A member of the RNA family "ssNA-helicase RNA", 49 nucleotides long. Rfam classes the family as a small RNA.

RNA sequence: UUGCCUAAGGGCUAGUAUUACCCUUAGGCAACUUCGAUAGCGUGUCGCA
Numbered sequence: 001u002u003g004c005c006u007a008a009g010g011g012c013u014a015g016u017a018u019u020a021c022c023c024u025u026a027g028g029c030a031a032c033u034u035c036g037a038u039a040g041c042g043u044g045u046c047g048c049a
Base pairs, nucleotide, nucleotide: 001031002030003029004028005027006026007025008024009023010022011021